Annotation
Rfam assigns this 71-nucleotide sequence from Borborobacter arsenicus to the family "ybhL leader". A reference for the family is Corbino et al. (2005), "Evidence for a second class of S-adenosylmethionine riboswitches and other regulatory RNA motifs in alpha-proteobacteria", Genome Biol. Pairs were carried over by alignment from the consensus structure. By type it is a cis-regulatory leader. Rfam links the family to the GO term regulation of gene expression.

RNA sequence: CAGGCAUGCUGGAGUCCCGCCAGCGGCGCCUGGGUUCAUGGUAAAAAGGCCCGACACCGGACGGGGCAGAA
Number, nucleotide and partner (000 for none) at each position: 001c000002a000003g000004g000005c000006a000007u000008g000009c000010u000011g000012g000013a000014g067015u066016c065017c064018c063019g062020c000021c000022a000023g000024c059025g058026g057027c000028g000029c000030c000031u053032g052033g051034g050035u000036u048037c000038a000039u000040g000041g000042u000043a000044a000045a000046a000047a000048g036049g000050c034051c033052c032053g031054a000055c000056a000057c026058c025059g024060g000061a000062c019063g018064g017065g016066g015067c014068a000069g000070a000071a000